[Rfam]
RNA: mir-7 microRNA precursor family
RNA sequence: AGCGCGUCGCGUCGUGGAAGACUAGUGAUUUUGUUGUUGUACAUUCACGUUUUGACAACAAGUCACAGUCUACCUCAGCGCGUCGCGCA
Numbered sequence: 001a002g003c004g005c006g007u008c009g010c011g012u013c014g015u016g017g018a019a020g021a022c023u024a025g026u027g028a029u030u031u032u033g034u035u036g037u038u039g040u041a042c043a044u045u046c047a048c049g050u051u052u053u054g055a056c057a058a059c060a061a062g063u064c065a066c067a068g069u070c071u072a073c074c075u076c077a078g079c080g081c082g083u084c085g086c087g088c089a
Stems, first nucleotide, its partner, number of pairs: 002088005008082001010080003014076001016074002019071005025066007033059006